Rfam assigns this 72-nucleotide sequence from Ameyamaea chiangmaiensis to the family "Makes More Granules Regulator RNA (mmgR)". Rfam describes the family as follows. SuhB later renamed mmgR (makes more granules regulator) was a putative non-coding RNA found multiple times in the Agrobacterium tumefaciens genome and related alpha-proteobacteria. By type it is a small RNA.
[Rfam]
RNA sequence: GAAGGUCGUCUUCAUGGACGUUUCCUCCCUAAACUUCGGCGGCGCUCAGGCGCCGUCUUUUUUUUGCCCUGC
Numbered sequence: 001g002a003a004g005g006u007c008g009u010c011u012u013c014a015u016g017g018a019c020g021u022u023u024c025c026u027c028c029c030u031a032a033a034c035u036u037c038g039g040c041g042g043c044g045c046u047c048a049g050g051c052g053c054c055g056u057c058u059u060u061u062u063u064u065u066g067c068c069c070u071g072c
Base pairs, nucleotide, nucleotide: 008019009018010017011016038057039056040055041054042053043052044051045050